[Rfam]
RNA sequence: GCCUCGCAUCCAGAGCUGGGCUGACGCCCACGCCAACCUGCCUUCCCGGGCAAGGUGGUGGCCUCUCGCAAGAGGGGCGAUGCGGCCGGACCGGCAACCAAACGGGUCGAA
Numbered sequence: 001g002c003c004u005c006g007c008a009u010c011c012a013g014a015g016c017u018g019g020g021c022u023g024a025c026g027c028c029c030a031c032g033c034c035a036a037c038c039u040g041c042c043u044u045c046c047c048g049g050g051c052a053a054g055g056u057g058g059u060g061g062c063c064u065c066u067c068g069c070a071a072g073a074g075g076g077g078c079g080a081u082g083c084g085g086c087c088g089g090a091c092c093g094g095c096a097a098c099c100a101a102a103c104g105g106g107u108c109g110a111a
Stems, first nucleotide, its partner, number of pairs: 006083005015031001017030005032059003037055003040051003045106004085095004
RNA: SAM-I/IV (S-adenosyl methionine) riboswitch aptamer